[Rfam]
Nucleotides: 043
Base pairs, nucleotide, nucleotide: 001016002015003014004013005012006011030043031042032041033040034039
Number, partner (000 for none) and nucleotide at each position: 001016c002015a003014g004013u005012g006011g007000a008000c009000g010000a011006c012005c013004a014003c015002u016001g017000u018000u019000g020000a021000a022000a023000u024000c025000a026000a027000a028000a029000a030043g031042c032041g033040g034039g035000a036000c037000g038000a039034c040033c041032c042031g043030c
Source information:
The record is a 43-nucleotide RNA sequence from Marinobacterium lacunae, which matches "Guanidine-II riboswitch aptamer (mini-ykkC)" in Rfam. Taxonomically the source falls in Marinobacterium (Bacteria, Pseudomonadati, Pseudomonadota, Oceanospirillales). The base pairs follow the family's consensus structure, which is taken from published work. Simpler in structure and has fewer highly conserved nucleotide positions than the ykkC-yxkD leader. Despite this each of its two stem-loop structures directly bind free guanidine. It scores 34 bits against the family's covariance model.